A member of the RNA family "Small nucleolar RNA SNORA9" from Mola mola, 134 nucleotides long.
ACA9 is a member of the H/ACA class of snoRNA that guide the sites of modification of uridines to pseudouridines.
The family's RNA type in Rfam is H/ACA-box small nucleolar RNA.
The family is grouped with related families in Rfam's "SNORA9 clan".
It scores 93 bits against the family's covariance model.
RNA sequence: GUGCAGGCCGUUCAGCGAGGCUCAGCCUGCUGUGGCUCCGUCCUUUCCUGAAGUGUCUGCUAGAGAGACAUGAGGCAGUUUGAGGCCCUGCUGCGACCCUCAGCGGCAGGGUUAUAGGUUCGCCUCUGACACGU
Numbered sequence: 001g002u003g004c005a006g007g008c009c010g011u012u013c014a015g016c017g018a019g020g021c022u023c024a025g026c027c028u029g030c031u032g033u034g035g036c037u038c039c040g041u042c043c044u045u046u047c048c049u050g051a052a053g054u055g056u057c058u059g060c061u062a063g064a065g066a067g068a069c070a071u072g073a074g075g076c077a078g079u080u081u082g083a084g085g086c087c088c089u090g091c092u093g094c095g096a097c098c099c100u101c102a103g104c105g106g107c108a109g110g111g112u113u114a115u116a117g118g119u120u121c122g123c124c125u126c127u128g129a130c131a132c133g134u
Stems, first nucleotide, its partner, number of pairs: 003060006018044003024037004072126004086111006093104002